RNA sequence: UCUUCGUCGCCUUGCAGACACGACCCUAUCAGUAUUGCCUCUGCUUCCACUAGUGUUAACAGAGUAGUGCAAUAUUGCUUAUAGGGUCUUGACUCUGAGGAAUG
Numbered sequence: 001u002c003u004u005c006g007u008c009g010c011c012u013u014g015c016a017g018a019c020a021c022g023a024c025c026c027u028a029u030c031a032g033u034a035u036u037g038c039c040u041c042u043g044c045u046u047c048c049a050c051u052a053g054u055g056u057u058a059a060c061a062g063a064g065u066a067g068u069g070c071a072a073u074a075u076u077g078c079u080u081a082u083a084g085g086g087u088c089u090u091g092a093c094u095c096u097g098a099g100g101a102a103u104g
Stems, first nucleotide, its partner, number of pairs: 020090001022088008030077009041067004045062001
RNA: mir-454 microRNA precursor family
Organism: Betta splendens